RNase MRP: a 530-nucleotide RNA from Colletotrichum chlorophyti. The family's RNA type in Rfam is ribozyme. The family has 66 seed sequences and 3,510 matches in Rfam 15.1. Pairs were carried over by alignment from the consensus structure, which is taken from published work. The match comes from Rfam's covariance-model search (93 bits).
[Rfam]
RNA sequence: CCCUCGCCCGACAAAUCGCCAUCGAAGCUCACAAACAGAGACGCCUGCUUGCAGACGUCUCGACCUUUCGGGGUCAACCACGAGCUUUGGGAGAAAGUCCCCGGACACACGUUAUUCUUCCCUCUCGGGUGGAGAACAGAAACGCCGCGGAAACGCGCCGCCAUAGAAGCACAGCGGCUGACCUCCAAGACCUGCGCCCGGACAUAAUGCCUUCCCUCUCUGCCCUGUCCCGUCGCUACAUCGCGGUAGCUGCCCUUCCCUGACCCUCGUCGAGCCCCGAAUCUUUCAGAGGCCCGGGACCACAUGGAUGAAGAUAUGAGUCCGCGCCCGGGAUGAGAAGCCCGGUGUUUGCUCGGCCUGGCGCCACGGACGGGGAGCUUCUUCGAUGACGGGGAAGCCGCAUAGGGAUCGUCGCUUGCCGGGCGAAUUCAAGGGUCGGUCGGAGGAGUCUUUUGUCGAGAUCGACAGGUAUGCGAUUGCCCAUCCUCUCGAGGAUGGGUUACUCGAUGGGGCUUAUUCUUGGUGCGAGG
Numbered sequence: 001c002c003c004u005c006g007c008c009c010g011a012c013a014a015a016u017c018g019c020c021a022u023c024g025a026a027g028c029u030c031a032c033a034a035a036c037a038g039a040g041a042c043g044c045c046u047g048c049u050u051g052c053a054g055a056c057g058u059c060u061c062g063a064c065c066u067u068u069c070g071g072g073g074u075c076a077a078c079c080a081c082g083a084g085c086u087u088u089g090g091g092a093g094a095a096a097g098u099c100c101c102c103g104g105a106c107a108c109a110c111g112u113u114a115u116u117c118u119u120c121c122c123u124c125u126c127g128g129g130u131g132g133a134g135a136a137c138a139g140a141a142a143c144g145c146c147g148c149g150g151a152a153a154c155g156c157g158c159c160g161c162c163a164u165a166g167a168a169g170c171a172c173a174g175c176g177g178c179u180g181a182c183c184u185c186c187a188a189g190a191c192c193u194g195c196g197c198c199c200g201g202a203c204a205u206a207a208u209g210c211c212u213u214c215c216c217u218c219u220c221u222g223c224c225c226u227g228u229c230c231c232g233u234c235g236c237u238a239c240a241u242c243g244c245g246g247u248a249g250c251u252g253c254c255c256u257u258c259c260c261u262g263a264c265c266c267u268c269g270u271c272g273a274g275c276c277c278c279g280a281a282u283c284u285u286u287c288a289g290a291g292g293c294c295c296g297g298g299a300c301c302a303c304a305u306g307g308a309u310g311a312a313g314a315u316a317u318g319a320g321u322c323c324g325c326g327c328c329c330g331g332g333a334u335g336a337g338a339a340g341c342c343c344g345g346u347g348u349u350u351g352c353u354c355g356g357c358c359u360g361g362c363g364c365c366a367c368g369g370a371c372g373g374g375g376a377g378c379u380u381c382u383u384c385g386a387u388g389a390c391g392g393g394g395a396a397g398c399c400g401c402a403u404a405g406g407g408a409u410c411g412u413c414g415c416u417u418g419c420c421g422g423g424c425g426a427a428u429u430c431a432a433g434g435g436u437c438g439g440u441c442g443g444a445g446g447a448g449u450c451u452u453u454u455g456u457c458g459a460g461a462u463c464g465a466c467a468g469g470u471a472u473g474c475g476a477u478u479g480c481c482c483a484u485c486c487u488c489u490c491g492a493g494g495a496u497g498g499g500u501u502a503c504u505c506g507a508u509g510g511g512g513c514u515u516a517u518u519c520u521u522g523g524u525g526c527g528a529g530g
Stems, first nucleotide, its partner, number of pairs: 002530006008523004014478006022091001023089006038061006095515003099512004128146004374450002381445006387438004414424004480499006